[Rfam]
A member of the RNA family "Manganese Mn2+ riboswitch aptamer (yybP-ykoY)" from Rhodospirillaceae bacterium LM-1, 181 nucleotides long.
This RNA was originally discovered in E. coli during a large scale screen and was named SraF. The family was later found to exist upstream of related families of protein genes in many bacteria, including the the yybP and ykoK genes in B. subtilis.
The source organism's lineage runs through Bacteria, Pseudomonadota, Alphaproteobacteria, Rhodospirillales and Rhodospirillaceae.
RNA sequence: CCAAACGUCAUUGGGGAGUAGCCGCCUUCGCAUCCAGAAGGGGGCGCGUCAACAAACUUGGGCAACGCCGCUUGGCUUGCCCAUGGCGCGUCCGGCCCAUCGGGCAUGGCAAGACCUUUGGCUUCGACCGUCACCCAGGGGGCUGGGCGGGACGGCGAGCCAUAGGUUGCGUCCGUCCGGC
Numbered sequence: 001c002c003a004a005a006c007g008u009c010a011u012u013g014g015g016g017a018g019u020a021g022c023c024g025c026c027u028u029c030g031c032a033u034c035c036a037g038a039a040g041g042g043g044g045c046g047c048g049u050c051a052a053c054a055a056a057c058u059u060g061g062g063c064a065a066c067g068c069c070g071c072u073u074g075g076c077u078u079g080c081c082c083a084u085g086g087c088g089c090g091u092c093c094g095g096c097c098c099a100u101c102g103g104g105c106a107u108g109g110c111a112a113g114a115c116c117u118u119u120g121g122c123u124u125c126g127a128c129c130g131u132c133a134c135c136c137a138g139g140g141g142g143c144u145g146g147g148c149g150g151g152a153c154g155g156c157g158a159g160c161c162a163u164a165g166g167u168u169g170c171g172u173c174c175g176u177c178c179g180g181c
Stems, first nucleotide, its partner, number of pairs: 026040003042093010059083007